[Rfam]
RNA: Mammalian CPEB3 ribozyme
RNA sequence: GGUCAAAAAUUUGAGACUACAGCAGAAGUGAUCAUGGUGCAGCCCUGUCAGAUUCUAAAGAAUCUGCACAUUCUGCU
Dot-bracket structure: ............[.[.[[..((((((((((.......)))]].]]...(((((((....)))))))....)))))))